[Rfam]
RNA sequence: AUGGGAACAGCACAGCUGCGGAUCCGACGCGCCGGGGAUCAGUUGCCCACGGCUUGGGAACGUAGCAGUGC
Numbered sequence: 001a002u003g004g005g006a007a008c009a010g011c012a013c014a015g016c017u018g019c020g021g022a023u024c025c026g027a028c029g030c031g032c033c034g035g036g037g038a039u040c041a042g043u044u045g046c047c048c049a050c051g052g053c054u055u056g057g058g059a060a061c062g063u064a065g066c067a068g069u070g071c
Stems, first nucleotide, its partner, number of pairs: 010071004015066006024058002031053004036048002

S15-Halobacteria ribosomal protein leader: a 71-nucleotide RNA sequence. Clan: Ribosomal Protein S15 Leader clan. The family's RNA type in Rfam is cis-regulatory leader.